Shown here is a 102-nucleotide sequence from Aneurinibacillus sp. XH2, a member of the family "Purine riboswitch aptamer". NCBI's taxonomy places the organism under Bacteria, Bacillati, Bacilli, Caryophanales, Aneurinibacillus. A search with the family's covariance model found it, with a score of 89 bits.
[Rfam]
RNA sequence: AAAACGAACAUUAACGACGCUCGUAUAAUCGCGGGAAUAUGGCUCGCAAGUCUCUACCAGAUUGCCGUAAACAAUCUGACUACGGGUGAAAGCAUGACUGAU
Dot-bracket structure: .................((((((((...(.(((((.......))))).)........(((((((.......)))))))..))))))))..............